Record summary:
A member of the RNA family "msiK RNA" from Arachnia propionica, 57 nucleotides long. A search with the family's covariance model found it, with a score of 54 bits. By type it is a cis-regulatory element.

[Rfam]
RNA sequence: GAGUCACUUCCACCACUACGGAUCGUCGGGCACGUACCUGCCCGUGGAAAGGAAAUG
Numbered sequence: 001g002a003g004u005c006a007c008u009u010c011c012a013c014c015a016c017u018a019c020g021g022a023u024c025g026u027c028g029g030g031c032a033c034g035u036a037c038c039u040g041c042c043c044g045u046g047g048a049a050a051g052g053a054a055a056u057g
Stems, first nucleotide, its partner, number of pairs: 007051003013047003027044006